This 79-nucleotide sequence from Geomesophilobacter sediminis belongs to the Rfam family "c-di-GMP-I-UAU riboswitch aptamer".
Nucleotides: 079
Base pairs, nucleotide, nucleotide: 011036012035016031017030018029019028020027021026039072040071041070042069044068045067046066047063048062049061050060051059052058
Number, partner (000 for none) and nucleotide at each position: 001000c002000g003000g004000u005000c006000a007000a008000a009000u010000a011036g012035c013000a014000a015000a016031c017030c018029c019028g020027g021026g022000g023000u024000a025000a026021c027020c028019c029018g030017g031016g032000g033000a034000c035012g036011c037000a038000a039072a040071g041070c042069c043000a044068c045067g046066g047063g048062u049061c050060c051059u052058c053000g054000u055000c056000g057000u058052g059051a060050g061049g062048a063047c064000a065000g066046c067045c068044g069042g070041g071040u072039u073000g074000c075000c076000a077000a078000a079000a